This 359-nucleotide RNA sequence from Candidatus Tokpelaia sp. JSC085 belongs to the Rfam family "Alphaproteobacteria transfer-messenger RNA". For this family Rfam cites "tmRDB (tmRNA database)" (Zwieb et al., Nucleic Acids Res, 2003). Bacterial tmRNA, also known as 10Sa RNA or SsrA, is named for its dual tRNA and mRNA-like properties. Rfam links the family to the GO term RNA catabolic process. The source organism's lineage runs through Bacteria, Pseudomonadota, Alphaproteobacteria, Hyphomicrobiales and Candidatus Tokpelaia.
RNA sequence: GACCUUGCAUUUCUUCUUAUAAUUCGGGUACAUUAAACCUGCUUUUUUAGGCUAUGGUAAUAAAUGGACGGUGAAAUAAACCUAUUGGACCCGGGGGCAGUACCCGGCGCCUCCACCACGGGGCAAUCAUGUUAGUUGCUUGCUUUAUGGUGGGGGCGAUAUAGGAUCGACAAAGGUAUAAAGAUCGCUCUUUUGCUCGGCAUUGUACCACCGUUAUCGGACUUUUCAGUAGUUGCAAAUGACAACUAUGCGGAAGCUCGCCUCGCUGCUUGAGAGUAGUGUGGUAGCUUAAUUGUGAGUCUUGUUCUUUCGCAGGAGCAAGCGGGGUUUGGAGGCACCUGGCAACAGAAGCCUCGCCU
Numbered sequence: 001g002a003c004c005u006u007g008c009a010u011u012u013c014u015u016c017u018u019a020u021a022a023u024u025c026g027g028g029u030a031c032a033u034u035a036a037a038c039c040u041g042c043u044u045u046u047u048u049a050g051g052c053u054a055u056g057g058u059a060a061u062a063a064a065u066g067g068a069c070g071g072u073g074a075a076a077u078a079a080a081c082c083u084a085u086u087g088g089a090c091c092c093g094g095g096g097g098c099a100g101u102a103c104c105c106g107g108c109g110c111c112u113c114c115a116c117c118a119c120g121g122g123g124c125a126a127u128c129a130u131g132u133u134a135g136u137u138g139c140u141u142g143c144u145u146u147a148u149g150g151u152g153g154g155g156g157c158g159a160u161a162u163a164g165g166a167u168c169g170a171c172a173a174a175g176g177u178a179u180a181a182a183g184a185u186c187g188c189u190c191u192u193u194u195g196c197u198c199g200g201c202a203u204u205g206u207a208c209c210a211c212c213g214u215u216a217u218c219g220g221a222c223u224u225u226u227c228a229g230u231a232g233u234u235g236c237a238a239a240u241g242a243c244a245a246c247u248a249u250g251c252g253g254a255a256g257c258u259c260g261c262c263u264c265g266c267u268g269c270u271u272g273a274g275a276g277u278a279g280u281g282u283g284g285u286a287g288c289u290u291a292a293u294u295g296u297g298a299g300u301c302u303u304g305u306u307c308u309u310u311c312g313c314a315g316g317a318g319c320a321a322g323c324g325g326g327g328u329u330u331g332g333a334g335g336c337a338c339c340u341g342g343c344a345a346c347a348g349a350a351g352c353c354u355c356g357c358c359u
Stems, first nucleotide, its partner, number of pairs: 041052004056197005066190002069187004081176003085173003091107005108158009198213003205222001208220002325340004332355005
Dot-bracket structure: ........................................((((....))))...(((((.....((.((((........(((.(((...(((((.......)))))(((((((((.................................)))))))))............)))))).......)))).))..)))))(((....[..[[.))).....]].]......................................................................................................[[[[...(((((]]]]..........)))))....